RNA sequence: UGCUUACCAAUGAUGUCCCAAAUAAAUGUCUGAACAAAUGACUGUCCAGUGAUAUUAGUUUUACACUGAGGUAAGCU
Numbered sequence: 001u002g003c004u005u006a007c008c009a010a011u012g013a014u015g016u017c018c019c020a021a022a023u024a025a026a027u028g029u030c031u032g033a034a035c036a037a038a039u040g041a042c043u044g045u046c047c048a049g050u051g052a053u054a055u056u057a058g059u060u061u062u063a064c065a066c067u068g069a070g071g072u073a074a075g076c077u
Stems, first nucleotide, its partner, number of pairs: 002076007
RNA: Small nucleolar RNA SNORD72